[Rfam]
RNA sequence: GGCGCCAUUAAGGGAUCAUUAAUGAUUCCAAAGUAUGAAUCGCAUCAUCCAGUUUGUCUGGAUGUGAGUGGCUCCUGCCUACUCUGUUUGACGCCUCCCUGUUGACCUUCACGAGCCGCCUUUGGCGGCUCUUUUUUU
Numbered sequence: 001g002g003c004g005c006c007a008u009u010a011a012g013g014g015a016u017c018a019u020u021a022a023u024g025a026u027u028c029c030a031a032a033g034u035a036u037g038a039a040u041c042g043c044a045u046c047a048u049c050c051a052g053u054u055u056g057u058c059u060g061g062a063u064g065u066g067a068g069u070g071g072c073u074c075c076u077g078c079c080u081a082c083u084c085u086g087u088u089u090g091a092c093g094c095c096u097c098c099c100u101g102u103u104g105a106c107c108u109u110c111a112c113g114a115g116c117c118g119c120c121u122u123u124g125g126c127g128g129c130u131c132u133u134u135u136u137u138u
Stems, first nucleotide, its partner, number of pairs: 002043003005014002020035002023032001048062004066084006090103004111133001113131008
Dot-bracket structure: .(((((......)).....((.(........).)).....)))....((((.......))))...((((((.......)))))).....((((......)))).......(.((((((((...)))))))).).....